[Rfam]
RNA sequence: UUUAACGUCGAGCCAGACGUGCAAUGCCUGAUGUCAAAGUUUUGUUCGUUCGGCUCGCGUUAUGC
Numbered sequence: 001u002u003u004a005a006c007g008u009c010g011a012g013c014c015a016g017a018c019g020u021g022c023a024a025u026g027c028c029u030g031a032u033g034u035c036a037a038a039g040u041u042u043u044g045u046u047c048g049u050u051c052g053g054c055u056c057g058c059g060u061u062a063u064g065c
Base pairs, nucleotide, nucleotide: 001064003062005060006059007058009057010056011055012054013053014052018048019047021045022044023043024042026040027039